RNA: Glutamine-II riboswitch aptamer
RNA sequence: GCACGUUCACCCUUUGGGGCGCAGGCAAUCUAACCAUGGAACGGGGGUUAGGU
Numbered sequence: 001g002c003a004c005g006u007u008c009a010c011c012c013u014u015u016g017g018g019g020c021g022c023a024g025g026c027a028a029u030c031u032a033a034c035c036a037u038g039g040a041a042c043g044g045g046g047g048u049u050a051g052g053u
Base pairs, nucleotide, nucleotide: 004043005042006041007040008039010019011018012017028053029052030051031050032049033048034046035045